[Rfam]
RNA sequence: UACAGCAGAGAUAAAAACACAGCCCGGUCGGUAGUCCGGGCGCGGCCCAGUGCCGUCAGUAACCUGCCUCCUUGGUUGUCCGUUCUCUGCGGGACCAUU
Numbered sequence: 001u002a003c004a005g006c007a008g009a010g011a012u013a014a015a016a017a018c019a020c021a022g023c024c025c026g027g028u029c030g031g032u033a034g035u036c037c038g039g040g041c042g043c044g045g046c047c048c049a050g051u052g053c054c055g056u057c058a059g060u061a062a063c064c065u066g067c068c069u070c071c072u073u074g075g076u077u078g079u080c081c082g083u084u085c086u087c088u089g090c091g092g093g094a095c096c097a098u099u
Stems, first nucleotide, its partner, number of pairs: 005090007022041006042056005066076003

The family of this 99-nucleotide sequence from Neobittarella massiliensis is "azaaromatic riboswitch aptamer (yjdF RNA)". Taxonomically the source falls in Neobittarella (ex Bilen et al. 2018) (Bacteria, Bacillota, Clostridia, Oscillospiraceae).